[Rfam]
This 75-nucleotide RNA from Thermobifida cellulosilytica belongs to the Rfam family "6C RNA". It is annotated as a cis-regulatory element.
RNA sequence: ACGGAACCGGCUCUUCCCCCCGGAGCCGGGCCGUCGGACGGCCCCCGCCUUCCCCCCUGGCGGGGGCCGUCGUCC
Numbered sequence: 001a002c003g004g005a006a007c008c009g010g011c012u013c014u015u016c017c018c019c020c021c022g023g024a025g026c027c028g029g030g031c032c033g034u035c036g037g038a039c040g041g042c043c044c045c046c047g048c049c050u051u052c053c054c055c056c057c058u059g060g061c062g063g064g065g066g067c068c069g070u071c072g073u074c075c
Base pairs, nucleotide, nucleotide: 002036003035004032007029008028009027010026011025012024013023037071038070039069040068041067042066043065044064045063046062047061048060049059
The family's consensus secondary structure is taken from published work.